[Rfam]
RNA sequence: AGAGGAAGGUUAUAAAGGGUCCCUCAAAGGGCAACCUUUGAGAGAAAAUUGGGUGAAUUGCUGGGAACUCCUAAAGCUUUGCUUCCUACAACAGAACCUGAAAAGGUAUAUGUGAAAGGCCAAAAAAAGCAAAGAUAGAACAAUGGACAAUCAGCAGCCAAGCUCCUGUUCCGAAAGGAUGGAGAAGGUUCAACGACUAGGAUGUACCACCUAAGCAAUUUAUAAUUAAAAAUUGUAUGGUGAUGAGAUCCAUAGGGAAGAGGUAUCCCGAAGUGCCCAACAACCGUUUUGAUUCAAUAUAAUAUAUAAAUAUAAUAUAUCAUUGAUAACGGUUGAAGAUAUAGUCUGGCAAUUAUUGAAAGAUAAUU
Dot-bracket structure: ....((.((.(.(...).).)).))...((.....))...........[[[[.[[...((((((....(((.........................................................................)))...))))))((.....((....(......)...)).....))...(.(((((..........................................................................]].]]]]..((((((.(...................................).))))))........)))))).....(((((....)))))..

This 368-nucleotide sequence from Schnuerera ultunensis belongs to the Rfam family "Group I catalytic intron". The literature on the family includes a 1990 paper in Annu Rev Biochem by Cech, "Self-splicing of group I introns". Gene Ontology term of the family: Group I intron splicing. Pairs were carried over by alignment from the consensus structure, which is taken from published work. Rfam describes the family as follows. Group I catalytic introns are large self-splicing ribozymes.